[Rfam]
A member of the RNA family "mir-103/107 microRNA precursor family" from Liparis tanakae, 78 nucleotides long. For this family Rfam cites "miRNPs: a novel class of ribonucleoproteins containing numerous microRNAs" (Mourelatos et al., Genes Dev, 2002). Pairs were carried over by alignment from the consensus structure, which was predicted with RNAalifold. Rfam 15.1 lists 1,982 matches to the family in 645 species.

RNA sequence: GUGUGCUGUGAGCUUCUUUACAGUGUUGCCUUGUGGCUCUGUGGUCAAGCAGCAUUGUACAGGGCUAUCACUACACAC
Numbered sequence: 001g002u003g004u005g006c007u008g009u010g011a012g013c014u015u016c017u018u019u020a021c022a023g024u025g026u027u028g029c030c031u032u033g034u035g036g037c038u039c040u041g042u043g044g045u046c047a048a049g050c051a052g053c054a055u056u057g058u059a060c061a062g063g064g065c066u067a068u069c070a071c072u073a074c075a076c077a078c
Stems, first nucleotide, its partner, number of pairs: 014064004019059010030049004